[Rfam]
RNA: Metazoan signal recognition particle RNA
Organism: Apophysomyces sp. BC1034
RNA sequence: ACCGGGGAGUAUCGCGGCUUCCUGUAUGCCAAGUGGCGGUCAUGGAGGGAUGAACUUAACAGUUUGGUGGAAUCACGGCUGGCUGGUUGCCUUGUCGAUGGAAGUGUCUUACAGAGAUUGAUGUUAACAUUCUGGCUUGAGCAUAAGCUGGGUCAGGAGGUUAUUAAAUAUUGGGGAACCGCCCGAGGGUAGAAAUACAGCAGGGAAAACCUGGAGCAUCAAAUCGGCUGGAAGAUAGCACUCCGUAGAGGACUUAUCAGUCAGUUGCCAUCGCUGGUGGGAACUGCCCCUUUU
Numbered sequence: 001a002c003c004g005g006g007g008a009g010u011a012u013c014g015c016g017g018c019u020u021c022c023u024g025u026a027u028g029c030c031a032a033g034u035g036g037c038g039g040u041c042a043u044g045g046a047g048g049g050a051u052g053a054a055c056u057u058a059a060c061a062g063u064u065u066g067g068u069g070g071a072a073u074c075a076c077g078g079c080u081g082g083c084u085g086g087u088u089g090c091c092u093u094g095u096c097g098a099u100g101g102a103a104g105u106g107u108c109u110u111a112c113a114g115a116g117a118u119u120g121a122u123g124u125u126a127a128c129a130u131u132c133u134g135g136c137u138u139g140a141g142c143a144u145a146a147g148c149u150g151g152g153u154c155a156g157g158a159g160g161u162u163a164u165u166a167a168a169u170a171u172u173g174g175g176g177a178a179c180c181g182c183c184c185g186a187g188g189g190u191a192g193a194a195a196u197a198c199a200g201c202a203g204g205g206a207a208a209a210c211c212u213g214g215a216g217c218a219u220c221a222a223a224u225c226g227g228c229u230g231g232a233a234g235a236u237a238g239c240a241c242u243c244c245g246u247a248g249a250g251g252a253c254u255u256a257u258c259a260g261u262c263a264g265u266u267g268c269c270a271u272c273g274c275u276g277g278u279g280g281g282a283a284c285u286g287c288c289c290c291u292u293u294u
Base pairs, nucleotide, nucleotide: 001040002039003038004023005022006021007020008019009018010017028037029036030035044293045292046291047290048289049288051286053285056282057281060276061275062274065273066272067271068270069269070268076267077266078265079264080263081262082261083260084259085258086257087256090251091250092249093248099245100244101243102242104241105240106239107238108234109233110232112230113229114228116225117224118222119221120220121219122218123217124216125163126162127161128160130158131157132156133155134154135153136152137151140149141148142147164170171214172213173212174211175210182205183204184203189198190197191196